The family of this 80-nucleotide RNA from Megalops atlanticus is "Small nucleolar RNA SNORD72".
The source organism's lineage runs through Eukaryota, Vertebrata, Gnathostomata, Euteleostomi and Megalops.
snoRNA HBII-240 belongs to the CD family of snoRNAs. It is the human orthologue of the mouse MBII-240 and is predicted to guide 2'O-ribose methylation of the large 28S rRNA at residue U4590.
The family's RNA type in Rfam is C/D-box small nucleolar RNA.

[Rfam]
RNA sequence: GUCUUGUCAAUGAUGUUAUGCAAAUACAAAUGUCUGAACAUAUGAGUUCAAGUGAUUCAAUGUUUAAACUGAGACGAGAC
Number, nucleotide and partner (000 for none) at each position: 001g000002u079003c078004u077005u076006g075007u074008c073009a000010a000011u000012g000013a000014u000015g000016u000017u000018a000019u000020g000021c000022a000023a000024a000025u000026a000027c000028a000029a000030a000031u000032g000033u000034c000035u000036g000037a000038a000039c000040a000041u000042a000043u000044g000045a000046g000047u000048u000049c000050a000051a000052g000053u000054g000055a000056u000057u000058c000059a000060a000061u000062g000063u000064u000065u000066a000067a000068a000069c000070u000071g000072a000073g008074a007075c006076g005077a004078g003079a002080c000